[Rfam]
RNA sequence: UUGAAUACUCUGCUCCUUAGCUGAUUUACCUAAGCCUUUCAGGGUAUGGUAUCCGGCCGAUCGGUAUAGCGGGAAACGGCUAUGUCUCCCAUUUGGAAAGGAGCAAUAUUUUAAGCGGU
Dot-bracket structure: ...(......((((((...((((..(.(((...((((....))))..))))..)))).....((((((((.(....).)))))))).((.....))...))))))......).......